[Rfam]
RNA sequence: AAGGUGGUUUUCUAGGGUUCCGCAGUGCCCUCCCGCGCUGGUCUGGUCCGAGAGAAAACACAUAGCGAAGUAUCGUUAUGACACGGUGGGAUAAAAGCCCAGGAGUU
Number, nucleotide and partner (000 for none) at each position: 001a000002a000003g000004g000005u000006g000007g059008u058009u057010u056011u055012c054013u000014a000015g049016g048017g000018u000019u000020c046021c045022g043023c040024a039025g038026u037027g036028c035029c000030c000031u000032c000033c000034c000035g028036c027037g026038c025039u024040g023041g000042u000043c022044u000045g021046g020047u000048c016049c015050g000051a000052g000053a000054g012055a011056a010057a009058a008059c007060a000061c080062a079063u078064a077065g076066c075067g074068a000069a000070g000071u000072a000073u000074c067075g066076u065077u064078a063079u062080g061081a000082c102083a000084c105085g000086g000087u000088g100089g099090g098091a000092u000093a000094a000095a000096a000097g000098c090099c089100c088101a000102g082103g000104a000105g084106u000107u000
RNA: Guanidine-I riboswitch aptamer
Organism: Bacillus licheniformis